[Rfam]
RNA sequence: ACAAUCCAGCCUGCGCAAAGUUUAGCCAACAGCGCAGAACGAACUAUACGGCUAAGGAGGUAACGAAUUAGUUGAAGCUAUAGUGUAGGCGAUUUGUCAGCCACAAUGCGAAAGCGUGAAGGUGUUGAGCCCCGAAAUAAUUCUAUUGUUGCAAGAGGACCAAAGGUUUCAUUUCCUGGAAGUCAGUAUCGGUAUAUUCGCUAAGGGCAAGAAUAUAUCGGCGUGCCGGGGUCUAAGUCCG
Numbered sequence: 001a002c003a004a005u006c007c008a009g010c011c012u013g014c015g016c017a018a019a020g021u022u023u024a025g026c027c028a029a030c031a032g033c034g035c036a037g038a039a040c041g042a043a044c045u046a047u048a049c050g051g052c053u054a055a056g057g058a059g060g061u062a063a064c065g066a067a068u069u070a071g072u073u074g075a076a077g078c079u080a081u082a083g084u085g086u087a088g089g090c091g092a093u094u095u096g097u098c099a100g101c102c103a104c105a106a107u108g109c110g111a112a113a114g115c116g117u118g119a120a121g122g123u124g125u126u127g128a129g130c131c132c133c134g135a136a137a138u139a140a141u142u143c144u145a146u147u148g149u150u151g152c153a154a155g156a157g158g159a160c161c162a163a164a165g166g167u168u169u170c171a172u173u174u175c176c177u178g179g180a181a182g183u184c185a186g187u188a189u190c191g192g193u194a195u196a197u198u199c200g201c202u203a204a205g206g207g208c209a210a211g212a213a214u215a216u217a218u219c220g221g222c223g224u225g226c227c228g229g230g231g232u233c234u235a236a237g238u239c240c241g
Stems, first nucleotide, its partner, number of pairs: 012036005020030003023210001025208002039086002043084004049074007059064001126235001127233001129232006151226003157222001158184003164177003189221011
Source information
Rfam assigns this 241-nucleotide sequence from Pontiella sulfatireligans to the family "Group II catalytic intron D1-D4-6". Group II introns are found in rRNA, tRNA and mRNA of organelles in fungi, plants and protists, and also in mRNA in bacteria. Pairs were carried over by alignment from the consensus structure.